The family of this 167-nucleotide RNA from Escherichia coli is "Bacterial antisense RNA HPnc0260". It is one of the family's seed sequences. Taxonomically the source falls in Escherichia coli O127:H6 (Bacteria, Pseudomonadati, Escherichia, Escherichia coli).
RNA sequence: UGUAACAAAGUUGCCAUAGCGAUUCUCCUUCUGAUAACGCAUAAGGAGACAGUGUAAAUCUUUUAACGCAUUGGAUACAGGGAAGAAACAGAGGAAAAAAGAAGAGAGAAGACCAGAUUAAGAAAAUCUGGUGCGUCCGAGUGGACUCGAACCACCGACCCCCACCA
Numbered sequence: 001u002g003u004a005a006c007a008a009a010g011u012u013g014c015c016a017u018a019g020c021g022a023u024u025c026u027c028c029u030u031c032u033g034a035u036a037a038c039g040c041a042u043a044a045g046g047a048g049a050c051a052g053u054g055u056a057a058a059u060c061u062u063u064u065a066a067c068g069c070a071u072u073g074g075a076u077a078c079a080g081g082g083a084a085g086a087a088a089c090a091g092a093g094g095a096a097a098a099a100a101g102a103a104g105a106g107a108g109a110a111g112a113c114c115a116g117a118u119u120a121a122g123a124a125a126a127u128c129u130g131g132u133g134c135g136u137c138c139g140a141g142u143g144g145a146c147u148c149g150a151a152c153c154a155c156c157g158a159c160c161c162c163c164a165c166c167a
Base pairs, nucleotide, nucleotide: 024049025048026047030043032041033040071086072085129164130163131162133160138157139156141155142154143153144152